Small nucleolar RNA SNORA13: a 132-nucleotide RNA from Todus mexicanus. About the family: ACA13 is a member of the H/ACA class of snoRNA that guide the sites of modification of uridines to pseudouridines. It is annotated as an H/ACA-box small nucleolar RNA. Its Rfam clan is "SNORA13 clan".

[Rfam]
RNA sequence: UGCCUUUGUGUUGCCCAUUCAAUCCUGUCCAGAGUGAAUGUGGUGUCAAAAAAGGCAGACAGGAAUUCUUGCUCAAACAGGUUCAGGAGCUGGUUAUUUACCUUUCUCCUCUCUGUUUUUGCAAGGACAGAA
Numbered sequence: 001u002g003c004c005u006u007u008g009u010g011u012u013g014c015c016c017a018u019u020c021a022a023u024c025c026u027g028u029c030c031a032g033a034g035u036g037a038a039u040g041u042g043g044u045g046u047c048a049a050a051a052a053a054g055g056c057a058g059a060c061a062g063g064a065a066u067u068c069u070u071g072c073u074c075a076a077a078c079a080g081g082u083u084c085a086g087g088a089g090c091u092g093g094u095u096a097u098u099u100a101c102c103u104u105u106c107u108c109c110u111c112u113c114u115g116u117u118u119u120u121g122c123a124a125g126g127a128c129a130g131a132a
Stems, first nucleotide, its partner, number of pairs: 002056006009048002012045004016040006023033001068125004074121004084115004088110002092103002